RNA sequence: AAUUGAAGAGAACGACUGCUUGUGAUGUACUCUCUUUUUGCCCUAGCAUAGUUAUAUCACAGUGGCUGUUCUUUUUAAUU
Numbered sequence: 001a002a003u004u005g006a007a008g009a010g011a012a013c014g015a016c017u018g019c020u021u022g023u024g025a026u027g028u029a030c031u032c033u034c035u036u037u038u039u040g041c042c043c044u045a046g047c048a049u050a051g052u053u054a055u056a057u058c059a060c061a062g063u064g065g066c067u068g069u070u071c072u073u074u075u076u077a078a079u080u
Stems, first nucleotide, its partner, number of pairs: 004077002007074007016065005023059002026056004
Overview
The record is an 80-nucleotide RNA from Musca domestica, which matches "mir-6 microRNA precursor family" in Rfam. Gene Ontology terms of the family: miRNA-mediated post-transcriptional gene silencing and RISC complex. This family consists of the microRNA (miRNA) precursor mir-6 which appears to be Drosophila specific. The base pairs follow the family's consensus structure, which was predicted with PFOLD. Taxonomically the source falls in Musca (Eukaryota, Allotriocarida, Hexapoda, Eumetabola). A reference for the family is Mourelatos et al. (2002), "miRNPs: a novel class of ribonucleoproteins containing numerous microRNAs", Genes Dev. Rfam 15.1 lists 58 matches to the family in 23 species.